[Rfam]
RNA sequence: CUUCUGCGGUGAUGAAUUUAUGAAAACCAAUUCACAUGUCAGACUUCAGAGAUUCUUCAAUCAAUGAGAAGAAAUUUCAUACUUCUGAGCAGAAG
Numbered sequence: 001c002u003u004c005u006g007c008g009g010u011g012a013u014g015a016a017u018u019u020a021u022g023a024a025a026a027c028c029a030a031u032u033c034a035c036a037u038g039u040c041a042g043a044c045u046u047c048a049g050a051g052a053u054u055c056u057u058c059a060a061u062c063a064a065u066g067a068g069a070a071g072a073a074a075u076u077u078c079a080u081a082c083u084u085c086u087g088a089g090c091a092g093a094a095g
Stems, first nucleotide, its partner, number of pairs: 001095007051062004
Small nucleolar RNA R64/Z200 family: a 95-nucleotide RNA from Ricinus communis. Rfam's curators put it in the seed alignment. It is annotated as a C/D-box small nucleolar RNA. Gene Ontology terms of the family: RNA processing and nucleolus. The source organism's lineage runs through Eukaryota, Gunneridae, Pentapetalae, Malpighiales and Ricinus.